[Rfam]
RNA sequence: AAAAACUUCACGGGAGUUGAACUCCCGUGAAGUUUAGUAGAUUAAUUAAAAGCUGCUAAACUUCACGGGAGUUCAACUCCCGUGAAGUUUCG
Numbered sequence: 001a002a003a004a005a006c007u008u009c010a011c012g013g014g015a016g017u018u019g020a021a022c023u024c025c026c027g028u029g030a031a032g033u034u035u036a037g038u039a040g041a042u043u044a045a046u047u048a049a050a051a052g053c054u055g056c057u058a059a060a061c062u063u064c065a066c067g068g069g070a071g072u073u074c075a076a077c078u079c080c081c082g083u084g085a086a087g088u089u090u091c092g
Stems, first nucleotide, its partner, number of pairs: 003090005009084001011082005017076003023070008033060005
Description: Shown here is a 92-nucleotide RNA sequence from Asparagus officinalis, a member of the family "mir-998 microRNA precursor family". The family has 7 seed sequences and 83 matches in Rfam 15.1. It scores 53 bits against the family's covariance model. The source organism's lineage runs through Eukaryota, Tracheophyta, Petrosaviidae, Asparagoideae and Asparagus.